[Rfam]
Nucleotides: 200
Stems, first nucleotide, its partner, number of pairs: 018053005031043004054192004064109004068101005074095006116188005125179006131150003137146002156172002159170004
Number, partner (000 for none) and nucleotide at each position: 001000g002000a003000g004000a005000a006000c007000u008000a009000a010000u011000a012000a013000u014000c015000c016000a017000a018053a019052a020051a021050g022049u023000a024000a025000a026000a027000u028000g029000a030000u031043a032042g033041g034040g035000u036000a037000a038000c039000g040034c041033c042032u043031u044000g045000a046000a047000g048000g049022g050021c051020u052019u053018u054192c055191u056190c057189u058000a059000a060000u061000a062000c063000u064109c065108c066107g067106a068101a069100u070099a071098g072097c073000g074095u075094u076093c077092u078091c079090a080000u081000u082000g083000a084000u085000a086000a087000g088000a089000a090079u091078g092077a093076g094075a095074g096000g097072g098071u099070u100069a101068u102000a103000a104000g105000c106067u107066c108065g109064g110000u111000g112000a113000a114000g115000u116188c117187g118186g119185c120184u121000g122000a123000g124000a125179a126178u127177a128176c129175a130174c131150c132149c133148u134000a135000a136000c137146a138145g139000g140000u141000c142000a143000a144000g145138c146137u147000g148133a149132g150131g151000a152000a153000a154000g155000g156172c157171g158000a159170a160169c161168c162167a163000g164000a165000g166000g167162u168161g169160g170159u171157c172156g173000a174130g175129u176128g177127u178126a179125u180000g181000a182000u183000a184120g185119g186118u187117c188116g189057g190056g191055a192054g193000u194000c195000c196000a197000u198000a199000a200000a